Overview: This 85-nucleotide sequence from Bacillus sp. B1-b2 belongs to the Rfam family "c-di-GMP-I riboswitch aptamer". Gene Ontology term of the family: cyclic-di-GMP binding. The match comes from Rfam's covariance-model search (79 bits). Lineage of the source: Bacteria > Bacillota > Caryophanales > Bacillaceae > Bacillus.

[Rfam]
RNA sequence: UUUUGAUAAAGGCAAACUUAUUGAAAAAUGAGGACGCAAAGCUAUAGGGACUAAAGAGUGCAUUCAAUGUCAGCCAGCUACCGAU
Numbered sequence: 001u002u003u004u005g006a007u008a009a010a011g012g013c014a015a016a017c018u019u020a021u022u023g024a025a026a027a028a029u030g031a032g033g034a035c036g037c038a039a040a041g042c043u044a045u046a047g048g049g050a051c052u053a054a055a056g057a058g059u060g061c062a063u064u065c066a067a068u069g070u071c072a073g074c075c076a077g078c079u080a081c082c083g084a085u
Stems, first nucleotide, its partner, number of pairs: 012037002017032006040079004047075002049071003056065003
Dot-bracket structure: ...........((...((((((....))))))...))..((((...(((((....(((....)))...)))..))))))......